Small nucleolar RNA SNORA79: a 147-nucleotide RNA from Muntiacus reevesi. Pairs were carried over by alignment from the consensus structure, which was predicted with RNAalifold. A search with the family's covariance model found it, with a score of 76 bits. From the family's description: ACA65 (SNORA79) is a member of the H/ACA class of snoRNAs that guide the sites of modification of uridines to pseudouridines. This snoRNA was identified by computational screening and its expression in mouse experimentally verified by Northern blot and primer extension analysis.

Nucleotides: 147
Base pairs, nucleotide, nucleotide: 001055002054003053004052005051006050008048014042015041016040017039018038021035022034023033068139069138071136072135081126082125083124084123085122086121087120088117089116090115095111096110097109098108099107
Number, partner (000 for none) and nucleotide at each position: 001055u002054g003053a004052u005051g006050g007000c008048u009000g010000u011000u012000c013000c014042u015041c016040u017039u018038g019000u020000g021035a022034c023033u024000g025000g026000a027000g028000c029000u030000c031000u032000a033023g034022g035021u036000a037000g038018u039017g040016g041015g042014a043000u044000u045000u046000u047000a048008g049000u050006c051005c052004g053003u054002c055001a056000u057000a058000u059000g060000u061000c062000u063000a064000g065000g066000c067000u068139g069138g070000c071136u072135u073000g074000u075000c076000u077000u078000c079000u080000c081126u082125c083124a084123g085122g086121a087120c088117a089116c090115u091000a092000c093000a094000g095111g096110g097109a098108u099107g100000g101000c102000u103000u104000g105000g106000g107099u108098g109097u110096u111095c112000g113000u114000u115090a116089g117088u118000a119000u120087g121086u122085u123084c124083u125082g126081a127000u128000u129000u130000u131000u132000g133000c134000g135072g136071a137000a138069u139068c140000a141000c142000a143000c144000a145000a146000u147000u